This 76-nucleotide RNA from Tardiphaga robiniae belongs to the Rfam family "chrB-a RNA". Taxonomically the source falls in Tardiphaga (Bacteria, Pseudomonadota, Hyphomicrobiales, Nitrobacteraceae). It is annotated as a cis-regulatory element.

RNA sequence: AACACGGGGGUGGCGAUCCCCCCGCGAGGCGACAUGCCCAAGUAUCGCGUCCUGAAUUCACCAAGGGCGCAGCAUG
Numbered sequence: 001a002a003c004a005c006g007g008g009g010g011u012g013g014c015g016a017u018c019c020c021c022c023c024g025c026g027a028g029g030c031g032a033c034a035u036g037c038c039c040a041a042g043u044a045u046c047g048c049g050u051c052c053u054g055a056a057u058u059c060a061c062c063a064a065g066g067g068c069g070c071a072g073c074a075u076g
Stems, first nucleotide, its partner, number of pairs: 005024006047070006